[Rfam]
RNA sequence: CGGUAACUCCGAGUCCUGCACAGGAUAGGAGUAACGGCUGUCUGGCCCAGCCAUCGGUUCGCCUGUUCGACAAGCAAACGGGGAGAGUAGCCCCACAAGAACAGGUGCGACCGUAGACCGGCAAAUAUCCCAACGCUUGCGGUGCGGUUCGGGAAGCCCCGUCUUCACGACGGGGA
Number, nucleotide and partner (000 for none) at each position: 001c000002g000003g035004u034005a000006a000007c031008u030009c029010c028011g000012a000013g026014u025015c024016c023017u022018g000019c000020a000021c000022a017023g016024g015025a014026u013027a000028g010029g009030a008031g007032u000033a000034a004035c003036g052037g051038c050039u049040g048041u000042c000043u000044g000045g000046c000047c000048c040049a039050g038051c037052c036053a000054u000055c113056g112057g111058u110059u109060c000061g000062c105063c104064u103065g102066u101067u100068c099069g000070a000071c000072a000073a000074g000075c000076a000077a000078a000079c000080g000081g094082g093083g092084a000085g000086a000087g000088u000089a000090g000091c000092c083093c082094c081095a000096c000097a000098a000099g068100a067101a066102c065103a064104g063105g062106u000107g000108c000109g059110a058111c057112c056113g055114u000115a000116g000117a000118c000119c000120g000121g000122c000123a000124a000125a000126u000127a000128u154129c153130c152131c151132a000133a149134c000135g000136c000137u000138u000139g000140c000141g000142g000143u000144g000145c000146g000147g000148u000149u133150c000151g131152g130153g129154a128155a000156g000157c175158c174159c173160c172161g171162u170163c169164u000165u000166c000167a000168c000169g163170a162171c161172g160173g159174g158175g157176a000
The record is a 176-nucleotide RNA from Salinarchaeum sp. IM2453, which matches "Sense overlapping transcript RNA 0042 (sot)" in Rfam. It is associated with IS1341-type transposase (tnpB) genes, at the 3'-end in H. salinarum NRC-1. The tetraloop structural motif may be functional. It scores 91 bits against the family's covariance model. Rfam 15.1 lists 196 matches to the family in 82 species. For this family Rfam cites "Sense overlapping transcripts in IS1341-type transposase genes are functional non-coding RNAs in archaea" (Gomes-Filho et al., RNA Biol, 2015). Rfam classes the family as a small RNA.